This 131-nucleotide sequence from Cuculus canorus belongs to the Rfam family "Small nucleolar RNA SNORA44". ACA44 is a member of the H/ACA class of snoRNA that guide the sites of modification of uridines to pseudouridines. Its family is annotated with nucleolus and RNA processing in the Gene Ontology.
[Rfam]
RNA sequence: UGGCAUGUUUAUCCAAGAGCUGUGGCUCCGUGCAAUAGCUGCAGGUCUCCAACAACAUGCAAGAGUAACAGGAAGGUCUUUGACUGCCGGGCUCCUUUUGCCUGUUGCUGUCACUCGCCCCUCCUAUAUAU
Numbered sequence: 001u002g003g004c005a006u007g008u009u010u011a012u013c014c015a016a017g018a019g020c021u022g023u024g025g026c027u028c029c030g031u032g033c034a035a036u037a038g039c040u041g042c043a044g045g046u047c048u049c050c051a052a053c054a055a056c057a058u059g060c061a062a063g064a065g066u067a068a069c070a071g072g073a074a075g076g077u078c079u080u081u082g083a084c085u086g087c088c089g090g091g092c093u094c095c096u097u098u099u100g101c102c103u104g105u106u107g108c109u110g111u112c113a114c115u116c117g118c119c120c121c122u123c124c125u126a127u128a129u130a131u
Stems, first nucleotide, its partner, number of pairs: 013044001018040006071124003075120002086111002088104004
By type it is an H/ACA-box small nucleolar RNA. The source organism's lineage runs through Eukaryota, Tetrapoda, Theropoda, Coelurosauria and Cuculus.